Nucleotides: 098
Base pairs, nucleotide, nucleotide: 005094007092008091011088012087013086014085015084016083017082018081019080020079022078023077024075025074026073027072028071029070030069032067033066035064
Number, partner (000 for none) and nucleotide at each position: 001000g002000u003000u004000u005094u006000c007092c008091c009000u010000a011088g012087a013086g014085u015084u016083c017082c018081c019080u020079u021000g022078a023077a024075c025074g026073c027072u028071u029070c030069a031000u032067u033066g034000a035064g036000g037000g038000u039000u040000c041000u042000a043000u044000c045000a046000u047000c048000a049000u050000a051000u052000c053000a054000a055000a056000a057000g058000a059000u060000a061000a062000u063000c064035c065000a066033u067032a068000c069030u070029g071028a072027a073026g074025u075024g076000u077023u078022u079020g080019g081018g082017g083016g084015a085014a086013c087012u088011c089000c090000u091008g092007g093000u094005g095000a096000u097000a098000c

Background
Shown here is a 98-nucleotide RNA sequence from Phaseolus vulgaris, a member of the family "mir-395 microRNA precursor family". mir-395 was identified in both Arabidopsis thaliana and Oryza sativa computationally and was later experimentally verified. mir-395 is thought to target mRNAs coding for ATP sulphurylases. The mature sequence is excised from the 3' arm of the hairpin. Gene Ontology terms of the family: miRNA-mediated post-transcriptional gene silencing and RISC complex. A search with the family's covariance model found it, with a score of 71 bits. The literature on the family includes a 2004 paper in Mol Cell by Jones-Rhoades and Bartel, "Computational Identification of Plant MicroRNAs and Their Targets, Including a Stress-Induced miRNA". The source organism's lineage runs through Eukaryota, Streptophyta, Streptophytina, Tracheophyta and Phaseolus.